[Rfam]
RNA sequence: CGGGGAAAGAAGACCCUGUUGAGCUUGACUCUAGUUUGACACUGUGAAGAGACAUGGGGGGUGUAGAAUAAGUGGGAGCUUCGGCAACAGUGAAAUACCACUACCCCCAUUGUUUCUUUACUUAGGAAGUGAAGAAAGGUUCCGGGAAACCGGGCGUUCUAGCAUUAAGAUUGUUUCGGCAGUUGACUUUUGUUUCCAACACCGUCAAGUGGGGAGUUUGGCUGGGGCGGCACAUCUGUUAAACAAUAACGCAGGUGUCCUAAGGGGAGCUCAGUGAGAACAGAAAUCUCACGUAGAGUAAAAGGGCAAAAGCUCCCUUGAUUUUGCUUUUCAGUGUGAAGACAAACCAUGAAAGUGUGGCCUAUCGAUCCUUUAGACGCGAAAGAUUUUCGCCUAGAGGUGCCAGAAAAGUUACCACAGGGAUAACUGGCUUGUGGCGGCCAAGCGUUCAUAGCGACGUCGCUUUUUGAUUCUUCGAUGUCGGCUCUUCCUAUCAUACUGAAGCAGAAUUCAGUAAGCGUUGGAUUGUUCACCCACUAAUAGGGAACGUGAGCUGGGUUUAGACCGUCGUGAGACAGGUUAGUUUUACCCUA
Numbered sequence: 001c002g003g004g005g006a007a008a009g010a011a012g013a014c015c016c017u018g019u020u021g022a023g024c025u026u027g028a029c030u031c032u033a034g035u036u037u038g039a040c041a042c043u044g045u046g047a048a049g050a051g052a053c054a055u056g057g058g059g060g061g062u063g064u065a066g067a068a069u070a071a072g073u074g075g076g077a078g079c080u081u082c083g084g085c086a087a088c089a090g091u092g093a094a095a096u097a098c099c100a101c102u103a104c105c106c107c108c109a110u111u112g113u114u115u116c117u118u119u120a121c122u123u124a125g126g127a128a129g130u131g132a133a134g135a136a137a138g139g140u141u142c143c144g145g146g147a148a149a150c151c152g153g154g155c156g157u158u159c160u161a162g163c164a165u166u167a168a169g170a171u172u173g174u175u176u177c178g179g180c181a182g183u184u185g186a187c188u189u190u191u192g193u194u195u196c197c198a199a200c201a202c203c204g205u206c207a208a209g210u211g212g213g214g215a216g217u218u219u220g221g222c223u224g225g226g227g228c229g230g231c232a233c234a235u236c237u238g239u240u241a242a243a244c245a246a247u248a249a250c251g252c253a254g255g256u257g258u259c260c261u262a263a264g265g266g267g268a269g270c271u272c273a274g275u276g277a278g279a280a281c282a283g284a285a286a287u288c289u290c291a292c293g294u295a296g297a298g299u300a301a302a303a304g305g306g307c308a309a310a311a312g313c314u315c316c317c318u319u320g321a322u323u324u325u326g327c328u329u330u331u332c333a334g335u336g337u338g339a340a341g342a343c344a345a346a347c348c349a350u351g352a353a354a355g356u357g358u359g360g361c362c363u364a365u366c367g368a369u370c371c372u373u374u375a376g377a378c379g380c381g382a383a384a385g386a387u388u389u390u391c392g393c394c395u396a397g398a399g400g401u402g403c404c405a406g407a408a409a410a411g412u413u414a415c416c417a418c419a420g421g422g423a424u425a426a427c428u429g430g431c432u433u434g435u436g437g438c439g440g441c442c443a444a445g446c447g448u449u450c451a452u453a454g455c456g457a458c459g460u461c462g463c464u465u466u467u468u469g470a471u472u473c474u475u476c477g478a479u480g481u482c483g484g485c486u487c488u489u490c491c492u493a494u495c496a497u498a499c500u501g502a503a504g505c506a507g508a509a510u511u512c513a514g515u516a517a518g519c520g521u522u523g524g525a526u527u528g529u530u531c532a533c534c535c536a537c538u539a540a541u542a543g544g545g546a547a548c549g550u551g552a553g554c555u556g557g558g559u560u561u562a563g564a565c566c567g568u569c570g571u572g573a574g575a576c577a578g579g580u581u582a583g584u585u586u587u588a589c590c591c592u593a
Base pairs, nucleotide, nucleotide: 003592004591005590007587008586015421016420017419018418020417021416022413023412024411025410026409028217029216030215031214035209036208037207038206039205040204044121045120046119047118048117049116050115051114052113053112054110055109056108057107058106059105060104071102072101073100074099075098078085079084125197126196127195128194129193135190136189137188138187143152144151146150169184170183171182172181173180220233221231222230223229234256235255236254237253238252239251259360260359265317266316267315268314269313270312271297272296274292275291276290277289278288279287298307299306322346323345324344327341328340329339330338348357349356350355371399372398373397374396375395376394379393380392381391382390430471432469434468436464437463438462439461440460441459445455446454482557483555484554485553486552487549488546489545490544491543492542495520498515499514500513501512502511503510522536523535524534526532563581564580565579566578567576568575569574
Rfam assigns this 593-nucleotide part of an RNA from Hesseltinella vesiculosa to the family "Eukaryotic large subunit ribosomal RNA". A search with the family's covariance model found it, with a score of 3175 bits. For this family Rfam cites "Crystal structure of the ribosome at 5.5 A resolution" (Yusupov et al., Science, 2001). The source organism's lineage runs through Eukaryota, Mucoromycota, Mucoromycotina, Mucoromycetes and Hesseltinella.